[Rfam]
RNA sequence: CCAGCCGGCCGGGCGGCCGCGGUGCCUUGUGCAUCGAGGAAAGUCCGGGCUCCACGGAGACACGGUGCCGGAUAACGUCCGGCGGGGGCGACCCUAGGGAAAGUGCCACAGAAAUCAGACCGCCCGCGCGUGCGCGGGUAAGGGUGAAACGGUGGGGUAAGAGCCCACCGCGCGACCGGCAACGGAAGCGGCACGGCAAACCCCACCGGGAGCAAGGUCGAAUAGGGACGGCACGGGCGCGCAAGCGCCCAAUCCGGUCUUCGGAUCGUCGUCCGGGUUGACUGCCAGAGGCGCCGGGUAACCGGCGUCCCAGAGGAAUGGCCGCCACGUGGGAGAAAUCCCGCCAUACAGAACCCGGCUUACAGGCCGGCUGGUGCU
Numbered sequence: 001c002c003a004g005c006c007g008g009c010c011g012g013g014c015g016g017c018c019g020c021g022g023u024g025c026c027u028u029g030u031g032c033a034u035c036g037a038g039g040a041a042a043g044u045c046c047g048g049g050c051u052c053c054a055c056g057g058a059g060a061c062a063c064g065g066u067g068c069c070g071g072a073u074a075a076c077g078u079c080c081g082g083c084g085g086g087g088g089c090g091a092c093c094c095u096a097g098g099g100a101a102a103g104u105g106c107c108a109c110a111g112a113a114a115u116c117a118g119a120c121c122g123c124c125c126g127c128g129c130g131u132g133c134g135c136g137g138g139u140a141a142g143g144g145u146g147a148a149a150c151g152g153u154g155g156g157g158u159a160a161g162a163g164c165c166c167a168c169c170g171c172g173c174g175a176c177c178g179g180c181a182a183c184g185g186a187a188g189c190g191g192c193a194c195g196g197c198a199a200a201c202c203c204c205a206c207c208g209g210g211a212g213c214a215a216g217g218u219c220g221a222a223u224a225g226g227g228a229c230g231g232c233a234c235g236g237g238c239g240c241g242c243a244a245g246c247g248c249c250c251a252a253u254c255c256g257g258u259c260u261u262c263g264g265a266u267c268g269u270c271g272u273c274c275g276g277g278u279u280g281a282c283u284g285c286c287a288g289a290g291g292c293g294c295c296g297g298g299u300a301a302c303c304g305g306c307g308u309c310c311c312a313g314a315g316g317a318a319u320g321g322c323c324g325c326c327a328c329g330u331g332g333g334a335g336a337a338a339u340c341c342c343g344c345c346a347u348a349c350a351g352a353a354c355c356c357g358g359c360u361u362a363c364a365g366g367c368c369g370g371c372u373g374g375u376g377c378u
Stems, first nucleotide, its partner, number of pairs: 001374010011363001012326007020036006041361003045358005050212004058261002063208005068082005083097001084095004098203002103201002105197003120143002122139007151169006170192001171190003176185003216283004226274006252266005290309008
Shown here is a 378-nucleotide RNA sequence from Azorhizobium caulinodans, a member of the family "Bacterial RNase P class A". About the family: Ribonuclease P (RNase P) is a ubiquitous endoribonuclease, found in archaea, bacteria and eukarya as well as chloroplasts and mitochondria. It is annotated as a ribozyme. Its family is annotated with ribonuclease P activity, tRNA processing and dimeric ribonuclease P complex in the Gene Ontology. The family's consensus secondary structure is taken from published work. The source organism's lineage runs through Bacteria, Pseudomonadati, Alphaproteobacteria, Xanthobacteraceae and Azorhizobium caulinodans.